[Rfam]
RNA: MIR7502 microRNA precursor family
Organism: Gossypium lobatum
RNA sequence: UGUUGAAAUUUUCAUCCAUUUCUACUGUUAGAAACUGGCAUGGCUGACAAAAUAACCAGAAAAUUACAUGUGACAUGCCACAUGUACCUCAUUCUGACAUACAGGGACCAAGUUUUAACAGUACAAAUGGAUGAAAUUUUUAACA
Number, nucleotide and partner (000 for none) at each position: 001u000002g144003u143004u142005g141006a140007a139008a138009u000010u136011u135012u134013c133014a132015u131016c130017c000018a128019u127020u126021u125022c000023u123024a122025c121026u120027g000028u118029u117030a116031g115032a114033a113034a000035c000036u000037g000038g000039c000040a000041u000042g000043g000044c000045u000046g000047a000048c000049a000050a000051a000052a000053u000054a000055a000056c000057c000058a000059g000060a000061a000062a000063a000064u000065u000066a000067c000068a000069u000070g000071u000072g000073a000074c000075a000076u000077g000078c000079c000080a000081c000082a000083u000084g000085u000086a000087c000088c000089u000090c000091a000092u000093u000094c000095u000096g000097a000098c000099a000100u000101a000102c000103a000104g000105g000106g000107a000108c000109c000110a000111a000112g000113u033114u032115u031116u030117a029118a028119c000120a026121g025122u024123a023124c000125a021126a020127a019128u018129g000130g016131a015132u014133g013134a012135a011136a010137u000138u008139u007140u006141u005142a004143a003144c002145a000